Source information: PyrR binding site: a 116-nucleotide sequence from Bacillus sp. FJAT-49711. By type it is a cis-regulatory element. It scores 60 bits against the family's covariance model. This family represents the PyrR binding site and terminator structure.

RNA sequence: AUUCCCUUUUAAAAACGGUCCUGUGAGGCUGGCAAAGGGAGGAUGGAUGGAAGCUAAGUUAAGCUUCUUCUUUACUGAACCCCUCUUUGUCGAAUAUGGACUGGAGGGGUUUUUUU
Number, nucleotide and partner (000 for none) at each position: 001a000002u000003u040004c039005c038006c037007u036008u035009u034010u000011a000012a000013a000014a000015a000016c031017g030018g029019u028020c027021c000022u000023g000024u000025g000026a000027g020028g019029c018030u017031g016032g000033c000034a009035a008036a007037g006038g005039g004040a003041g000042g075043a000044u000045g072046g071047a000048u000049g068050g067051a066052a065053g064054c063055u062056a000057a000058g000059u000060u000061a000062a055063g054064c053065u052066u051067c050068u049069u000070c000071u046072u045073u000074a000075c042076u000077g112078a111079a110080c109081c108082c107083c106084u105085c104086u103087u000088u000089g101090u100091c099092g000093a000094a000095u000096a000097u000098g000099g091100a090101c089102u000103g086104g085105a084106g083107g082108g081109g080110u079111u078112u077113u000114u000115u000116u000